[Rfam]
RNA sequence: GCUGAUUAGGUCUGUGGUUGAAAGUCGAUGCCAGCCGCAGGCGAAACGAUCCACGUAAGUCAGAUAAGGUCUGAUGAGCAUGGUGCGGUUUAGAAGUAAGUCCUGCCGGGAAAACCGAGAGAAGGAUUAGUGAGAGGCAUACCACCUUGAGCAAAACUUCCAGCAGGCGAGUGUGGGGUCAAAGACCAGGUCAGCUAAUCAGU
Numbered sequence: 001g002c003u004g005a006u007u008a009g010g011u012c013u014g015u016g017g018u019u020g021a022a023a024g025u026c027g028a029u030g031c032c033a034g035c036c037g038c039a040g041g042c043g044a045a046a047c048g049a050u051c052c053a054c055g056u057a058a059g060u061c062a063g064a065u066a067a068g069g070u071c072u073g074a075u076g077a078g079c080a081u082g083g084u085g086c087g088g089u090u091u092a093g094a095a096g097u098a099a100g101u102c103c104u105g106c107c108g109g110g111a112a113a114a115c116c117g118a119g120a121g122a123a124g125g126a127u128u129a130g131u132g133a134g135a136g137g138c139a140u141a142c143c144a145c146c147u148u149g150a151g152c153a154a155a156a157c158u159u160c161c162a163g164c165a166g167g168c169g170a171g172u173g174u175g176g177g178g179u180c181a182a183a184g185a186c187c188a189g190g191u192c193a194g195c196u197a198a199u200c201a202g203u
Base pairs, nucleotide, nucleotide: 001203002202003201004200005199006198007197008196009195012194013193014192015188016187017186018185019184028174029173030172031041033090034089035088036087037086038085039084050083051082058075060074061073062072063071064070081181102167103166104165105164106163107117108116109115121160122159123158124157130152131151136145

The family of this 203-nucleotide RNA sequence from Caloramator mitchellensis is "raiA RNA". A search with the family's covariance model found it, with a score of 193 bits. Lineage of the source: Bacteria > Bacillati > Bacillota > Eubacteriales > Caloramator.